Shown here is a 105-nucleotide RNA sequence from Aquimarina sp. TRL1, a member of the family "SAM riboswitch aptamer (S box leader)".
RNA sequence: AUGUUAUCAAGAAAGGUGGAGGGAAUAGACCCUGUGAAACCUUAGCAACCCUUUAUCUGGUAAAGAAGGUGCUACAUUCUAUUCGCGCAGCGAAAUAGAUAACAA
Number, nucleotide and partner (000 for none) at each position: 001a000002u104003g103004u102005u101006a100007u099008c098009a000010a000011g000012a000013a043014a042015g041016g040017u039018g000019g000020a000021g032022g031023g030024a000025a000026u081027a080028g079029a078030c023031c022032c021033u000034g000035u000036g000037a000038a000039a017040c016041c015042u014043u013044a073045g072046c071047a070048a000049c069050c068051c065052u064053u063054u062055a000056u000057c000058u000059g000060g000061u000062a054063a053064a052065g051066a000067a000068g050069g049070u047071g046072c045073u044074a000075c000076a000077u097078u029079c028080u027081a026082u094083u093084c092085g091086c090087g000088c000089a000090g086091c085092g084093a083094a082095a000096u000097a077098g008099a007100u006101a005102a004103c003104a002105a000

The family's consensus secondary structure is taken from published work.